[Rfam]
RNA sequence: CCCCUAAUGGGAAGUGAAGACCCCGUGGAGCUUUACUGCAACCUGUCGUUGGGUUGCGGCCACCAUUGUGCAGAGUAGAUAGGACCCGUCGAGCCCCAGGCGCCAGUCUGGGGGGAGGGGACAAUGAGACACUAUCCUUUGGUGACUGCGACCCUAACCUAACUUGGGACAUCGAUAGGCGGGCAGUUUGGCUGGGGCGGCACGCCCUCGAAAAGGUAUCGAUGGCGCCCUAAGGUCAACUCAACCGAGUCAGAAACUCGGUGAAGAGUGUAAAGGCAUAAGUUGGCUUGACACGCAACCGCACAACAAGGUUUCGUGAGACGAAAGUCGGGCUUAACGAACCAAUGCUCCCCCAAUGUGGGGGACAUUGAUGUCAGAAAAGCUACCCCGGGGAUAACAGAGUCGUCGCCGGCAAGAGUACAUAUCGACCCGGCGGCUUGCUACCUCGAUGUCGGUUCUUUCCAUCCUGGCCGUGCAGCAGCGGCCAAGGGUGAGGUUGUUCGCCUAUUAAAGGAGAUCGUGAGCUGGGUUUAGACCGUCGUGAGACAGGUCGGUUACUAUCUGUUAGGGGUGCAAA
Numbered sequence: 001c002c003c004c005u006a007a008u009g010g011g012a013a014g015u016g017a018a019g020a021c022c023c024c025g026u027g028g029a030g031c032u033u034u035a036c037u038g039c040a041a042c043c044u045g046u047c048g049u050u051g052g053g054u055u056g057c058g059g060c061c062a063c064c065a066u067u068g069u070g071c072a073g074a075g076u077a078g079a080u081a082g083g084a085c086c087c088g089u090c091g092a093g094c095c096c097c098a099g100g101c102g103c104c105a106g107u108c109u110g111g112g113g114g115g116a117g118g119g120g121a122c123a124a125u126g127a128g129a130c131a132c133u134a135u136c137c138u139u140u141g142g143u144g145a146c147u148g149c150g151a152c153c154c155u156a157a158c159c160u161a162a163c164u165u166g167g168g169a170c171a172u173c174g175a176u177a178g179g180c181g182g183g184c185a186g187u188u189u190g191g192c193u194g195g196g197g198c199g200g201c202a203c204g205c206c207c208u209c210g211a212a213a214a215g216g217u218a219u220c221g222a223u224g225g226c227g228c229c230c231u232a233a234g235g236u237c238a239a240c241u242c243a244a245c246c247g248a249g250u251c252a253g254a255a256a257c258u259c260g261g262u263g264a265a266g267a268g269u270g271u272a273a274a275g276g277c278a279u280a281a282g283u284u285g286g287c288u289u290g291a292c293a294c295g296c297a298a299c300c301g302c303a304c305a306a307c308a309a310g311g312u313u314u315c316g317u318g319a320g321a322c323g324a325a326a327g328u329c330g331g332g333c334u335u336a337a338c339g340a341a342c343c344a345a346u347g348c349u350c351c352c353c354c355a356a357u358g359u360g361g362g363g364g365a366c367a368u369u370g371a372u373g374u375c376a377g378a379a380a381a382g383c384u385a386c387c388c389c390g391g392g393g394a395u396a397a398c399a400g401a402g403u404c405g406u407c408g409c410c411g412g413c414a415a416g417a418g419u420a421c422a423u424a425u426c427g428a429c430c431c432g433g434c435g436g437c438u439u440g441c442u443a444c445c446u447c448g449a450u451g452u453c454g455g456u457u458c459u460u461u462c463c464a465u466c467c468u469g470g471c472c473g474u475g476c477a478g479c480a481g482c483g484g485c486c487a488a489g490g491g492u493g494a495g496g497u498u499g500u501u502c503g504c505c506u507a508u509u510a511a512a513g514g515a516g517a518u519c520g521u522g523a524g525c526u527g528g529g530u531u532u533a534g535a536c537c538g539u540c541g542u543g544a545g546a547c548a549g550g551u552c553g554g555u556u557a558c559u560a561u562c563u564g565u566u567a568g569g570g571g572u573g574c575a576a577a
Base pairs, nucleotide, nucleotide: 001571002570003569004568005567006566007565008564010563011562012561014558015557022392023391024390025389027388028387029384030383031382032381033380035187036186037185038184042179043178044177045176046175047174048173051154052153053152054151055150056149057148058147059146061144062143063142064141065140068137078136079135080134081133082132085119086118087117097110098109099108100107101106158167159166190203191201192200193199204226205225206224208222209221229332230331235287236286237285238284239283240282241267242266244262245261246260247259248258249257268277269276292318293317294316295315297313298312299311300310320329322327343370344369345368346367347366349365350364351363352362353361401442402441403440405439406436407435408434409433410432411431412430416426417425453528454526455525456524457523458520459517460516461515462514463513466491467490470485471484472483473482474481494506495505496504497503534552535551536550537549538547539546540545
RNA: Archaeal large subunit ribosomal RNA, nucleotides 2076 to 2652